[Rfam]
RNA sequence: CCGCGCCCCCGACGUGACACAACACUCUGCCGCGGUGUUGUGGGACCUGCAGUGUCCGUCGGCGGCGCAU
Numbered sequence: 001c002c003g004c005g006c007c008c009c010c011g012a013c014g015u016g017a018c019a020c021a022a023c024a025c026u027c028u029g030c031c032g033c034g035g036u037g038u039u040g041u042g043g044g045a046c047c048u049g050c051a052g053u054g055u056c057c058g059u060c061g062g063c064g065g066c067g068c069a070u
Base pairs, nucleotide, nucleotide: 003068004067005066006065007064009062010061011060012059013058021039022038023037024036025035026034044056045055046054
The family of this 70-nucleotide sequence from Pseudogymnoascus destructans is "bZIP non canonical Hac1/Xbp1 intron". Rfam classes the family as a small RNA. It scores 44 bits against the family's covariance model. About the family: bZIP intron RNA is a non-canonical intron that was first reported in HAC1 gene in yeast and XBP1 gene in Metazoa.